[Rfam]
Notes: Rfam assigns this 129-nucleotide RNA sequence from Streptococcus sp. X16XC17 to the family "Ribosomal protein L20 leader". The family's consensus secondary structure was predicted with CMfinder.
Nucleotides: 129
Base pairs, nucleotide, nucleotide: 011026012025013024014023015022016021028051029050030049033046034045035044036043037042092116093115094114095113096112097111098110099109100108101107
Number, partner (000 for none) and nucleotide at each position: 001000u002000g003000a004000g005000a006000a007000a008000a009000g010000c011026a012025g013024a014023a015022g016021u017000g018000a019000g020000a021016g022015c023014u024013u025012c026011u027000c028051g029050c030049c031000u032000u033046g034045c035044g036043a037042c038000u039000a040000a041000c042037g043036u044035u045034g046033u047000c048000u049030g050029g051028c052000u053000c054000u055000a056000c057000g058000u059000g060000u061000a062000a063000a064000a065000g066000a067000u068000u069000u070000c071000u072000u073000a074000g075000g076000a077000a078000a079000u080000a081000u082000a083000g084000a085000c086000u087000g088000u089000a090000g091000a092116g093115a094114c095113g096112g097111a098110c099109u100108u101107g102000u103000g104000a105000a106000g107101c108100a109099a110098g111097u112096c113095c114094g115093u116092u117000u118000c119000g120000u121000u122000u123000u124000u125000c126000u127000c128000g129000a

It is annotated as a cis-regulatory leader. About the family: This family is a putative r-protein leader autoregulatory structure found in B. subtilis and other low-GC Gram-positive bacteria. It is located in the 5' untranslated regions of mRNAs encoding initiation factor 3 followed by ribosomal proteins L35 and L20 (infC-rpmI-rplT). A Rho-independent transcription terminator structure that is probably involved in regulation is included at the 3' end. Lineage of the source: Bacteria > Bacillati > Bacillota > Lactobacillales > Streptococcus.